[Rfam]
RNA sequence: CACACAGGUUCCUCCACUCGGAUCGUCCGGCACGUUCCUGCCGGUGGAAAGGAAGUCGAU
Numbered sequence: 001c002a003c004a005c006a007g008g009u010u011c012c013u014c015c016a017c018u019c020g021g022a023u024c025g026u027c028c029g030g031c032a033c034g035u036u037c038c039u040g041c042c043g044g045u046g047g048a049a050a051g052g053a054a055g056u057c058g059a060u
Stems, first nucleotide, its partner, number of pairs: 010051001013048004027044006

This 60-nucleotide RNA from Actinoplanes friuliensis belongs to the Rfam family "msiK RNA". The source organism's lineage runs through Bacteria, Bacillati, Actinomycetota, Micromonosporales and Actinoplanes friuliensis. It scores 45 bits against the family's covariance model. Rfam classes the family as a cis-regulatory element.